The record is a 107-nucleotide RNA from Pseudooceanicola atlanticus, which matches "TPP riboswitch aptamer (THI element)" in Rfam. The family's consensus secondary structure is taken from published work. A search with the family's covariance model found it, with a score of 69 bits. NCBI's taxonomy places the organism under Bacteria, Pseudomonadota, Alphaproteobacteria, Paracoccaceae, Pseudooceanicola.
[Rfam]
RNA sequence: ACACAUAACCGGGGGUGCUCCGUUCAGGGGCUGAGAUGCGCGACCGCGUGAACCCUUUCAUAGCUGAUCUGGAUAAUACCAGCGGAGCGAGGUAACUCAUGUUCAUA
Numbered sequence: 001a002c003a004c005a006u007a008a009c010c011g012g013g014g015g016u017g018c019u020c021c022g023u024u025c026a027g028g029g030g031c032u033g034a035g036a037u038g039c040g041c042g043a044c045c046g047c048g049u050g051a052a053c054c055c056u057u058u059c060a061u062a063g064c065u066g067a068u069c070u071g072g073a074u075a076a077u078a079c080c081a082g083c084g085g086a087g088c089g090a091g092g093u094a095a096c097u098c099a100u101g102u103u104c105a106u107a
Base pairs, nucleotide, nucleotide: 006095008093009092010091011056012055013054014053016050017031018030019029020028021027038049039048040047041046063088064087065086069082070081071080072079